[Rfam]
RNA sequence: UUGACAUGAUGAUGAAGUUUAUCCAUUCUCUGAGUGCUACUGCACUGCUGCUUCUGCAGCAUGGAGAUUCCUGUUCUAGGUUUCUUCAUGUUCCACAGCCUCUGAAAGCCCUUGACACAGUGUUCUACUGUGUGCCAUUGGUGUUUAGGAGUCUGUGUGCAGAGUUGACAGGGCAGUCACGGGUUGAAGUCUUGGCUACAAGGCUUCAUCUCAGCAAAGACGAAUGAAUGAAUCUGAUCUU
Dot-bracket structure: ..........(((...((((...(((((.((..((...(((((.(((.((.(((((((.(((((((...(((.....)))...)))))))....((((.((......(((....((((((((...)))))))).......).)).....)).)))).))))))).)).))).)))))...(((.((((.(((((....))))).)))).))).))..))..)))))...))))...)))..

This 241-nucleotide sequence from Microcaecilia unicolor belongs to the Rfam family "Small nucleolar RNA SNORD17". Rfam 15.1 lists 1,015 matches to the family in 568 species. The snoRNA HBI-43 belongs to the C/D family of snoRNAs, guiding 2'O-ribose methylation at position U3797 of the 28S rRNA. Pseudouridylation in position U3797 is predicted to be guided by the H/ACA snoRNA ACA48. The family's RNA type in Rfam is C/D-box small nucleolar RNA. The source organism's lineage runs through Eukaryota, Chordata, Teleostomi, Gymnophiona and Microcaecilia. Gene Ontology terms of the family: RNA processing and nucleolus.